[Rfam]
The record is an 87-nucleotide RNA from Inhella gelatinilytica, which matches "SAH (S-adenosyl-L-homocysteine) riboswitch aptamer" in Rfam.
The match comes from Rfam's covariance-model search (65 bits).
Taxonomically the source falls in Inhella (Bacteria, Pseudomonadati, Burkholderiales, Sphaerotilaceae).
The literature on the family includes a 2008 paper in Mol Cell by Wang et al., "Riboswitches that sense S-adenosylhomocysteine and activate genes involved in coenzyme recycling".
RNA sequence: GCUUUCGAGGAGCGUUGCAACCGGUUGCUGACCGGCCAGGCUCGAAGGCCAGGGUCGGACACCCUGCUGCAACGGCGCUCACCCGCU
Numbered sequence: 001g002c003u004u005u006c007g008a009g010g011a012g013c014g015u016u017g018c019a020a021c022c023g024g025u026u027g028c029u030g031a032c033c034g035g036c037c038a039g040g041c042u043c044g045a046a047g048g049c050c051a052g053g054g055u056c057g058g059a060c061a062c063c064c065u066g067c068u069g070c071a072a073c074g075g076c077g078c079u080c081a082c083c084c085g086c087u
Stems, first nucleotide, its partner, number of pairs: 002048007021035006